Source information: Small nucleolar RNA snoR8a: a 99-nucleotide RNA sequence from Kingdonia uniflora. The source organism's lineage runs through Eukaryota, Streptophyta, Streptophytina, Spermatophyta and Kingdonia. By type it is a C/D-box small nucleolar RNA. Gene Ontology terms of the family: nucleolus and RNA processing. Pairs were carried over by alignment from the consensus structure, which was predicted with WAR. On this family, see Brown et al., RNA 2001: "Multiple snoRNA gene clusters from Arabidopsis".
Nucleotides: 099
Stems, first nucleotide, its partner, number of pairs: 003099002006097002
Number, partner (000 for none) and nucleotide at each position: 001000g002000u003099g004098g005000u006097u007096g008000c009000g010000a011000u012000g013000a014000u015000u016000g017000u018000a019000a020000a021000a022000g023000u024000a025000a026000u027000u028000c029000c030000u031000c032000g033000a034000a035000c036000u037000g038000a039000g040000a041000u042000g043000c044000u045000a046000a047000u048000g049000g050000c051000a052000u053000g054000a055000c056000u057000g058000a059000c060000u061000c062000c063000a064000a065000u066000u067000a068000c069000u070000g071000u072000a073000u074000u075000c076000c077000a078000a079000u080000c081000u082000g083000c084000a085000u086000g087000a088000a089000a090000a091000a092000c093000c094000a095000a096007c097006a098004c099003c